[Rfam]
RNA sequence: CCUCGGGUCACGCUCCCCCACCGGAGCGCUUUUCUUCUGUAAGGGAGAGUUUU
Numbered sequence: 001c002c003u004c005g006g007g008u009c010a011c012g013c014u015c016c017c018c019c020a021c022c023g024g025a026g027c028g029c030u031u032u033u034c035u036u037c038u039g040u041a042a043g044g045g046a047g048a049g050u051u052u053u
Stems, first nucleotide, its partner, number of pairs: 011028006033048006
The family of this 53-nucleotide RNA sequence from Acidocella aminolytica is "serC leader".
About the family: This family is a putative regulatory RNA structure that is found upstream of the serC-serA operon in some alpha-proteobacteria.
A reference for the family is Corbino et al. (2005), "Evidence for a second class of S-adenosylmethionine riboswitches and other regulatory RNA motifs in alpha-proteobacteria", Genome Biol.
The base pairs follow the family's consensus structure.